The family of this 220-nucleotide RNA sequence from Pullulanibacillus camelliae is "T-box leader".
A search with the family's covariance model found it, with a score of 142 bits.
The source organism's lineage runs through Bacteria, Bacillota, Bacilli, Sporolactobacillaceae and Pullulanibacillus.
Pairs were carried over by alignment from the consensus structure, which is taken from published work.
[Rfam]
RNA sequence: UUUACAUCGAUGAAGGGAAUUAGUAAUAGUGCGUUGUUUUGCUCAGAGAGGCGGUGGAUGCUGCAAACCGCCCAAAACAGACUAUGAAUCCAUCCCUGAGAAAAGUACUGAACGGCUAGACUCAGUAGGUAUUUUCGGUAAAACCGUUAUCUUUCUAAAGUGAUUUAUCAUUGACGUGAUAAAUAAUCAGGGUGGCAACGCGGGUGCUCUCGUCCCUUUC
Dot-bracket structure: ......((......((((.......(((((........(((........((((((...........))))))))).....))))).......))))...)).(((((((..................))))))).(((.....)))................(((((((........)))))))....((((.......(((((....)))))))))...